[Rfam]
The family of this 187-nucleotide RNA from Clostridium tepidiprofundi is "Lysine riboswitch aptamer". Rfam's curators write: Riboswitches are metabolite binding domains within certain messenger RNAs that serve as precision sensors for their corresponding targets. Allosteric rearrangement of mRNA structure is mediated by ligand binding, and this results in modulation of gene expression. Lineage of the source: Bacteria > Bacillati > Clostridiaceae > Clostridium > Clostridium tepidiprofundi. The match comes from Rfam's covariance-model search (92 bits).
RNA sequence: UACAUAAAUAGAGGAGCAGGUAAGUGGGUAGCUUUUAAAUGUUAAGAAAAAGAGCUUUCGAUUUUAAAAGUGAAGGGUUUAUCUGCCGAAAGAAUGUAUCAGCUCUUUUGGUAUGUUCUUGGGGGUUGAGUAGACUGGCUCAAUCACUGCCGUGAAAUAUUUAAUUUUAUGGAGCGCUAUUUAUGUG
Numbered sequence: 001u002a003c004a005u006a007a008a009u010a011g012a013g014g015a016g017c018a019g020g021u022a023a024g025u026g027g028g029u030a031g032c033u034u035u036u037a038a039a040u041g042u043u044a045a046g047a048a049a050a051a052g053a054g055c056u057u058u059c060g061a062u063u064u065u066a067a068a069a070g071u072g073a074a075g076g077g078u079u080u081a082u083c084u085g086c087c088g089a090a091a092g093a094a095u096g097u098a099u100c101a102g103c104u105c106u107u108u109u110g111g112u113a114u115g116u117u118c119u120u121g122g123g124g125g126u127u128g129a130g131u132a133g134a135c136u137g138g139c140u141c142a143a144u145c146a147c148u149g150c151c152g153u154g155a156a157a158u159a160u161u162u163a164a165u166u167u168u169a170u171g172g173a174g175c176g177c178u179a180u181u182u183a184u185g186u187g
Stems, first nucleotide, its partner, number of pairs: 006182006016086009031071008090120012121148002124145008150172007